[Rfam]
RNA sequence: ACACUCUCGUUUCUCUUCAGGUCAUAUAAAUCUUUCGUCUUUUAUGAAAGAUUUCCAUGGAGAGUAACAUUAUGAGUUUUAACUAAUUUUUGGGGGUGGUGCGGUGGCUCUGUG
Number, nucleotide and partner (000 for none) at each position: 001a000002c000003a077004c076005u075006c074007u000008c000009g068010u067011u066012u000013c064014u063015c062016u061017u060018c059019a058020g000021g000022u000023c000024a000025u000026a000027u000028a054029a053030a052031u051032c050033u049034u048035u047036c000037g000038u000039c000040u000041u000042u000043u000044a000045u000046g000047a035048a034049a033050g032051a031052u030053u029054u028055c000056c000057a000058u019059g018060g017061a016062g015063a014064g013065u000066a011067a010068c009069a000070u000071u000072a000073u000074g006075a005076g004077u003078u000079u000080u000081a000082a000083c000084u000085a000086a000087u000088u000089u000090u000091u000092g000093g000094g000095g000096g000097u000098g000099g000100u000101g110102c000103g000104g000105u000106g000107g000108c000109u000110c101111u000112g000113u000114g000

Rfam assigns this 114-nucleotide sequence from Atractosteus spatula to the family "U5 spliceosomal RNA". Rfam describes the family as follows. U5 RNA is a component of both types of known spliceosome. The precise function of this molecule is unknown, though it is known that the 5' loop is required for splice site selection and p220 binding, and that both the 3' stem-loop and the Sm site are important for Sm protein binding and cap methylation. The match comes from Rfam's covariance-model search (62 bits).